[Rfam]
RNA sequence: GAGACACCUUGUGGGGCAGGACUUGAUUCAGUGGGGCUUUGACGCUCACUGAGUCUGCCCCUUAGUGUGUCUCU
Numbered sequence: 001g002a003g004a005c006a007c008c009u010u011g012u013g014g015g016g017c018a019g020g021a022c023u024u025g026a027u028u029c030a031g032u033g034g035g036g037c038u039u040u041g042a043c044g045c046u047c048a049c050u051g052a053g054u055c056u057g058c059c060c061c062u063u064a065g066u067g068u069g070u071c072u073c074u
Stems, first nucleotide, its partner, number of pairs: 001073007009065001011063001013061006020055003028052008036043001
Background:
The record is a 74-nucleotide RNA sequence from Myotis brandtii, which matches "mir-9229 microRNA precursor family" in Rfam. Taxonomically the source falls in Myotis (Eukaryota, Sarcopterygii, Theria, Laurasiatheria). Rfam 15.1 lists 27,225 matches to the family in 9 species.